Record summary
The record is a 72-nucleotide RNA sequence from Orthoflavivirus denguei, which matches "Flavivirus DB element" in Rfam. Its family is annotated with translation in the Gene Ontology. The literature on the family includes a 2005 paper in J Virol by Chiu et al., "Control of translation by the 5'- and 3'-terminal regions of the dengue virus genome". From the family's description: This family represents the flavivirus 3' UTR elements DB1 and DB2. These DB elements are thought to be required for efficient translation. The organism belongs to Dengue virus, within Viruses. The family's RNA type in Rfam is cis-regulatory element.

RNA sequence: CGGGGCCCAACACCAGGGGAAGCUGUACCUUGGUGGUAAGGACUAGAGGUUAGAGGAGACCCCCCGCACAAC
Numbered sequence: 001c002g003g004g005g006c007c008c009a010a011c012a013c014c015a016g017g018g019g020a021a022g023c024u025g026u027a028c029c030u031u032g033g034u035g036g037u038a039a040g041g042a043c044u045a046g047a048g049g050u051u052a053g054a055g056g057a058g059a060c061c062c063c064c065c066g067c068a069c070a071a072c
Base pairs, nucleotide, nucleotide: 001066002065003064004063005062006041007040012034013033014032015031016030017029018028048061049060050059051058